[Rfam]
About this RNA
A member of the RNA family "Small nucleolar RNA SNORA5" from Urocitellus parryii, 136 nucleotides long. ACA5 is a member of the H/ACA class of snoRNA that guide the sites of modification of uridines to pseudouridines. It is annotated as an H/ACA-box small nucleolar RNA. The family's consensus secondary structure was predicted with RNAfold.
RNA sequence: UGCAGUCAAGUCAAAUUCAGCUCCCAUCUUCUCAUGGUGGGGGCUGGCCCAGAUGGCUGCUACAGCAAGUUACGCUGUUCAUGGGCCCUGUGUCCCCUGCUCUGGGACAUGGGGAUAAGUUUGGCUGCGGACAUGA
Numbered sequence: 001u002g003c004a005g006u007c008a009a010g011u012c013a014a015a016u017u018c019a020g021c022u023c024c025c026a027u028c029u030u031c032u033c034a035u036g037g038u039g040g041g042g043g044c045u046g047g048c049c050c051a052g053a054u055g056g057c058u059g060c061u062a063c064a065g066c067a068a069g070u071u072a073c074g075c076u077g078u079u080c081a082u083g084g085g086c087c088c089u090g091u092g093u094c095c096c097c098u099g100c101u102c103u104g105g106g107a108c109a110u111g112g113g114g115a116u117a118a119g120u121u122u123g124g125c126u127g128c129g130g131a132c133a134u135g136a
Stems, first nucleotide, its partner, number of pairs: 002060004018046011074128002077125003086114003090110002